[Rfam]
RNA sequence: CCCGCCCUCGCUCUAACAACACAGCGUGGUUUGGACGCGGCCGCAUCGCCGUACAAACCACGGUGUGCUGCUGGGGCGGGGGCGG
Numbered sequence: 001c002c003c004g005c006c007c008u009c010g011c012u013c014u015a016a017c018a019a020c021a022c023a024g025c026g027u028g029g030u031u032u033g034g035a036c037g038c039g040g041c042c043g044c045a046u047c048g049c050c051g052u053a054c055a056a057a058c059c060a061c062g063g064u065g066u067g068c069u070g071c072u073g074g075g076g077c078g079g080g081g082g083c084g085g
Base pairs, nucleotide, nucleotide: 012082013081014080015072017070018069020067021066022065023064025062026061027060028059029058030057031056032055033054035052036051037050039046